[Rfam]
RNA sequence: AAAAAAAAUGGGCGCAACGCCCAUCCUUCUGUACCGAGAUCACAUCCGGGCGGCGAAACAAAACACCAUGCCCAGCGACUUCGUGAUUUUAGCCAUUU
Dot-bracket structure: .......(((((((...)))))))............(((((((....(((..((....................))..))).))))))).........
The record is a 98-nucleotide RNA from Caballeronia sp. SBC1, which matches "Burkholderia sRNA Bp1_Cand612_SIPHT" in Rfam. Taxonomically the source falls in Caballeronia (Bacteria, Pseudomonadati, Burkholderiales, Burkholderiaceae). The family's RNA type in Rfam is small RNA. On this family, see Khoo et al., BMC Genomics 2012: "Computational discovery and RT-PCR validation of novel Burkholderia conserved and Burkholderia pseudomallei unique sRNAs".